Background: A member of the RNA family "Tick-borne Flavivirus exoribonuclease-resistant RNA element" from Orthoflavivirus royalense, 84 nucleotides long. A reference for the family is Pijlman et al. (2008), "A highly structured, nuclease-resistant, noncoding RNA produced by flaviviruses is required for pathogenicity", Cell Host Microbe. Lineage of the source: Viruses > Amarillovirales > Flaviviridae > Euflavivirus > Royal Farm virus. The base pairs follow the family's consensus structure, which was predicted with LocARNA. The exoribonuclease-resistant RNA elements (xrRNA) are described throughout all groups of flaviviruses. The family's RNA type in Rfam is cis-regulatory element.
[Rfam]
RNA sequence: AGGGGCACACUGGCAACACACCAUUGGUGACGGGAAUUAGGUCGACCCCGCCAGUGGGCUCCUCAAAGACAGAAUGUGAGACCA
Numbered sequence: 001a002g003g004g005g006c007a008c009a010c011u012g013g014c015a016a017c018a019c020a021c022c023a024u025u026g027g028u029g030a031c032g033g034g035a036a037u038u039a040g041g042u043c044g045a046c047c048c049c050g051c052c053a054g055u056g057g058g059c060u061c062c063u064c065a066a067a068g069a070c071a072g073a074a075u076g077u078g079a080g081a082c083c084a
Stems, first nucleotide, its partner, number of pairs: 001063006008056005019029004031050004